[Rfam]
RNA sequence: CCACCUCUCCCUCUGGGAGAGGUCGAAAUCUGCUACGCAGAUUUCGGGUGAGGGC
Numbered sequence: 001c002c003a004c005c006u007c008u009c010c011c012u013c014u015g016g017g018a019g020a021g022g023u024c025g026a027a028a029u030c031u032g033c034u035a036c037g038c039a040g041a042u043u044u045c046g047g048g049u050g051a052g053g054g055c
Stems, first nucleotide, its partner, number of pairs: 004022007025045009
The family of this 55-nucleotide RNA sequence from Aquisalinus flavus is "Whalefall-1 RNA". It is annotated as a small RNA.